RNA sequence: GGUGAUAAACGAUUUGCGGAAUAGGCUUUAUGGACCAGGGGGCGGUACCCUGCGCCUCCACCAUUUAUGGGGGCGAAAUAGGUUCGACAUGGGGCAAUAAAGGCUUAUUUUUCACUCGGCAUUGUACCGUCGUUAUCGGGCUAAUUUUAAUAAAUGCCAACAGAAAUAGAAGGCAAAAAGUCGCAGCCAAU
Numbered sequence: 001g002g003u004g005a006u007a008a009a010c011g012a013u014u015u016g017c018g019g020a021a022u023a024g025g026c027u028u029u030a031u032g033g034a035c036c037a038g039g040g041g042g043c044g045g046u047a048c049c050c051u052g053c054g055c056c057u058c059c060a061c062c063a064u065u066u067a068u069g070g071g072g073g074c075g076a077a078a079u080a081g082g083u084u085c086g087a088c089a090u091g092g093g094g095c096a097a098u099a100a101a102g103g104c105u106u107a108u109u110u111u112u113c114a115c116u117c118g119g120c121a122u123u124g125u126a127c128c129g130u131c132g133u134u135a136u137c138g139g140g141c142u143a144a145u146u147u148u149a150a151u152a153a154a155u156g157c158c159a160a161c162a163g164a165a166a167u168a169g170a171a172g173g174c175a176a177a178a179a180g181u182c183g184c185a186g187c188c189a190a191u
Stems, first nucleotide, its partner, number of pairs: 001116005016104002026094003030090003036052005053075007117132004

Shown here is a 191-nucleotide RNA sequence from an uncultured Pseudomonadota bacterium, a member of the family "permuted transfer-messenger RNA". Rfam's curators put it in the seed alignment. Bacterial tmRNA, also known as 10Sa RNA or SsrA, is named for its dual tRNA and mRNA-like properties. On this family, see Zwieb et al., Nucleic Acids Res 2003: "tmRDB (tmRNA database)".